ALIL pseudoknot: a 117-nucleotide RNA from Modestobacter muralis. The family's RNA type in Rfam is cis-regulatory element. Pairs were carried over by alignment from the consensus structure, which is taken from published work. A reference for the family is Mazauric et al. (2008), "Apical loop-internal loop RNA pseudoknots: a new type of stimulator of -1 translational frameshifting in bacteria", J Biol Chem.

RNA sequence: CGUUGACCUUCUUCCGGCGGAGCUCGACCGCCCACAGUGGUGGUCGUCGACUUCAUCGACGCCCACCGGGACGAGUGCGGGGUCGAGCCGAUCUGCCAGGCGCUGCAGAUCGCCCCG
Numbered sequence: 001c002g003u004u005g006a007c008c009u010u011c012u013u014c015c016g017g018c019g020g021a022g023c024u025c026g027a028c029c030g031c032c033c034a035c036a037g038u039g040g041u042g043g044u045c046g047u048c049g050a051c052u053u054c055a056u057c058g059a060c061g062c063c064c065a066c067c068g069g070g071a072c073g074a075g076u077g078c079g080g081g082g083u084c085g086a087g088c089c090g091a092u093c094u095g096c097c098a099g100g101c102g103c104u105g106c107a108g109a110u111c112g113c114c115c116c117g
Base pairs, nucleotide, nucleotide: 016032017031018030019029020028078117079116080115081114082113089112090111092109093108094107095106096105